A member of the RNA family "PyrR binding site" from Vagococcus fessus, 120 nucleotides long. Rfam's curators write: This family represents the PyrR binding site and terminator structure. The family has 41 seed sequences and 1,498 matches in Rfam 15.1.
[Rfam]
RNA sequence: AUCACCUUUAAGAAUAGUCCCGUGAGGCUAAGAAGGCACAACAGACGAGUAGUAGUCUCAGUCUGUCUACAGGAUAACUAUAUACUCCUGCCUUUCUUAGUAAAGGUAGGAGUUUUUUGU
Numbered sequence: 001a002u003c004a005c006c007u008u009u010a011a012g013a014a015u016a017g018u019c020c021c022g023u024g025a026g027g028c029u030a031a032g033a034a035g036g037c038a039c040a041a042c043a044g045a046c047g048a049g050u051a052g053u054a055g056u057c058u059c060a061g062u063c064u065g066u067c068u069a070c071a072g073g074a075u076a077a078c079u080a081u082a083u084a085c086u087c088c089u090g091c092c093u094u095u096c097u098u099a100g101u102a103a104a105g106g107u108a109g110g111a112g113u114u115u116u117u118u119g120u
Base pairs, nucleotide, nucleotide: 005036006035007034008033009032015030016029017028018027019026047075050072052070053069054068055067082115084113085112086111087110088109089108090107091106092105093104094103095102